[Rfam]
RNA sequence: GGAAAGUUGGCGGAGUGGUCGAUCGCGGCGGUCUUGAAAACCGUUGAACCGCAAGGUUCCGGGGGUUCGAAUCCCUCACUUUCCG
Numbered sequence: 001g002g003a004a005a006g007u008u009g010g011c012g013g014a015g016u017g018g019u020c021g022a023u024c025g026c027g028g029c030g031g032u033c034u035u036g037a038a039a040a041c042c043g044u045u046g047a048a049c050c051g052c053a054a055g056g057u058u059c060c061g062g063g064g065g066u067u068c069g070a071a072u073c074c075c076u077c078a079c080u081u082u083c084c085g
Stems, first nucleotide, its partner, number of pairs: 001084007010026004028044005061077005
Notes:
A member of the RNA family "tRNA" from Alistipes timonensis, 85 nucleotides long. The source organism's lineage runs through Bacteria, Bacteroidales, Rikenellaceae, Alistipes and Alistipes timonensis. Pairs were carried over by alignment from the consensus structure, which is taken from published work. Rfam's curators write: Transfer RNA (tRNA) molecules are approximately 80 nucleotides in length. The family's RNA type in Rfam is transfer RNA.